[Rfam]
RNA sequence: CAUUGAGGUGAUGAUAUUAUUUUCCGAAUUGCAUUUGCAUUGUGUCGACUUAAAGAAAUCAUAUUACAAUUAUCUGAUCAAUG
Numbered sequence: 001c002a003u004u005g006a007g008g009u010g011a012u013g014a015u016a017u018u019a020u021u022u023u024c025c026g027a028a029u030u031g032c033a034u035u036u037g038c039a040u041u042g043u044g045u046c047g048a049c050u051u052a053a054a055g056a057a058a059u060c061a062u063a064u065u066a067c068a069a070u071u072a073u074c075u076g077a078u079c080a081a082u083g
Stems, first nucleotide, its partner, number of pairs: 001083006

A member of the RNA family "Small nucleolar RNA Z155" from Rhamnella rubrinervis, 83 nucleotides long. A reference for the family is Chen et al. (2003), "The high diversity of snoRNAs in plants: identification and comparative study of 120 snoRNA genes from Oryza sativa", Nucleic Acids Res. Rfam classes the family as a C/D-box small nucleolar RNA. Pairs were carried over by alignment from the consensus structure.